[Rfam]
RNA sequence: AAAUAUAUUUGUUAGGUGAGGCUCCUAUAUGGAUACACGCUGCUGCCGGGAAACAUCGAGAGAUGCCAAUCAUGGUCAACAGAUACUACCGAAUUAAGGUUUUAUCUAAUGCAGCUUUGACUUAUGUCAUACGCCCUAUAGUGCUAAAACUCAACGAAAGCUAUUGUU
Numbered sequence: 001a002a003a004u005a006u007a008u009u010u011g012u013u014a015g016g017u018g019a020g021g022c023u024c025c026u027a028u029a030u031g032g033a034u035a036c037a038c039g040c041u042g043c044u045g046c047c048g049g050g051a052a053a054c055a056u057c058g059a060g061a062g063a064u065g066c067c068a069a070u071c072a073u074g075g076u077c078a079a080c081a082g083a084u085a086c087u088a089c090c091g092a093a094u095u096a097a098g099g100u101u102u103u104a105u106c107u108a109a110u111g112c113a114g115c116u117u118u119g120a121c122u123u124a125u126g127u128c129a130u131a132c133g134c135c136c137u138a139u140a141g142u143g144c145u146a147a148a149a150c151u152c153a154a155c156g157a158a159a160g161c162u163a164u165u166g167u168u
Base pairs, nucleotide, nucleotide: 005164006163007162009160010159011155012154013097015151016150017149020145021144022143025141026140027139028138029137031135032134039115040114041113042112043111045076046075047074048071049070054065055064056063057062082106083105084104085103088100089099090098117129119127
RNA: M-box riboswitch aptamer (ykoK leader)
Organism: Clostridiales bacterium oral taxon 876